[Rfam]
RNA sequence: AUUCUGUGGGCAUGUCUGCUGGCGUCGCCAGCAACAUGCCCAGGCAGUCGAGACCAUCAAGACUGCGGCACGGCUUGCCGUGCUGGUCCCCCAAUCCUCUCCGGACGCAUCUCGCGUCCCUCUCAUGCACCCCAACGGGAGUUUCCUCCCUUGGGGCG
Dot-bracket structure: ..........(((((..((((((...))))))).)))).....((((((..[[[[.....))))))(((((((....)))))))]]]].....................................((....(((..(((((....))))).)))..))